[Rfam]
The family of this 548-nucleotide RNA from Heterobasidion irregulare is "Nuclear RNase P". A reference for the family is Frank and Pace (1998), "Ribonuclease P: unity and diversity in a tRNA processing ribozyme", Annu Rev Biochem. Pairs were carried over by alignment from the consensus structure, which is taken from published work. The match comes from Rfam's covariance-model search (68 bits). The organism belongs to Heterobasidion irregulare, within Eukaryota.

RNA sequence: ACAGCUCCAAGGCCGCGAGGCUCACACCGUACAGGACGUCUUGCACGUCUCUUUCGUGAGCGGGCUAAGGUCUGAGUCCAUCUCUAUCGGCUCUAGCAGAGCCUAGUCUCAACAGGCUGCUCGACAUACCAGAAAUACGCCCUCUAUCCAUAUCCGAAGAACUUGUCCAUGUGUGCCCGUCAGCUAACAUGUAUAGGGAGGCGGGAUAGAGCGGCUUGGUACGUGUCGAUUGGAAUGGGUGUAUCGUCUUCCUCUAUGCCAUUGUUGUCCGUUCACCUUUGCCAUCGCGCCGAGUCAUCUUGUUUGGCACAGAGUUCACACGCAAAGCCGCUGCUGCAGCUUGGGUAGCUCUGUUGUGUUCCUCGACGCCUCUGUAAAGUGCCGUAGAUGCUUGCAGAGUUGUUGAGGAAAGGCGUAUGAAGCAUUGGUAGGAGACAUUGGCUGGUUGGUCGGCCAACUAUCCUUCAGUUCACUUCGCGGCUCAUGACCUUGCUCUCACCUUGAGGUGGGGACAUCAUGAAACUCGAUUCAGACUACUCUCGGGCUGU
Numbered sequence: 001a002c003a004g005c006u007c008c009a010a011g012g013c014c015g016c017g018a019g020g021c022u023c024a025c026a027c028c029g030u031a032c033a034g035g036a037c038g039u040c041u042u043g044c045a046c047g048u049c050u051c052u053u054u055c056g057u058g059a060g061c062g063g064g065c066u067a068a069g070g071u072c073u074g075a076g077u078c079c080a081u082c083u084c085u086a087u088c089g090g091c092u093c094u095a096g097c098a099g100a101g102c103c104u105a106g107u108c109u110c111a112a113c114a115g116g117c118u119g120c121u122c123g124a125c126a127u128a129c130c131a132g133a134a135a136u137a138c139g140c141c142c143u144c145u146a147u148c149c150a151u152a153u154c155c156g157a158a159g160a161a162c163u164u165g166u167c168c169a170u171g172u173g174u175g176c177c178c179g180u181c182a183g184c185u186a187a188c189a190u191g192u193a194u195a196g197g198g199a200g201g202c203g204g205g206a207u208a209g210a211g212c213g214g215c216u217u218g219g220u221a222c223g224u225g226u227c228g229a230u231u232g233g234a235a236u237g238g239g240u241g242u243a244u245c246g247u248c249u250u251c252c253u254c255u256a257u258g259c260c261a262u263u264g265u266u267g268u269c270c271g272u273u274c275a276c277c278u279u280u281g282c283c284a285u286c287g288c289g290c291c292g293a294g295u296c297a298u299c300u301u302g303u304u305u306g307g308c309a310c311a312g313a314g315u316u317c318a319c320a321c322g323c324a325a326a327g328c329c330g331c332u333g334c335u336g337c338a339g340c341u342u343g344g345g346u347a348g349c350u351c352u353g354u355u356g357u358g359u360u361c362c363u364c365g366a367c368g369c370c371u372c373u374g375u376a377a378a379g380u381g382c383c384g385u386a387g388a389u390g391c392u393u394g395c396a397g398a399g400u401u402g403u404u405g406a407g408g409a410a411a412g413g414c415g416u417a418u419g420a421a422g423c424a425u426u427g428g429u430a431g432g433a434g435a436c437a438u439u440g441g442c443u444g445g446u447u448g449g450u451c452g453g454c455c456a457a458c459u460a461u462c463c464u465u466c467a468g469u470u471c472a473c474u475u476c477g478c479g480g481c482u483c484a485u486g487a488c489c490u491u492g493c494u495c496u497c498a499c500c501u502u503g504a505g506g507u508g509g510g511g512a513c514a515u516c517a518u519g520a521a522a523c524u525c526g527a528u529u530c531a532g533a534c535u536a537c538u539c540u541c542g543g544g545c546u547g548u
Stems, first nucleotide, its partner, number of pairs: 001548004007542001009540001012481007020061005034050006072532005079237003089103005104119006121229007139215003482520006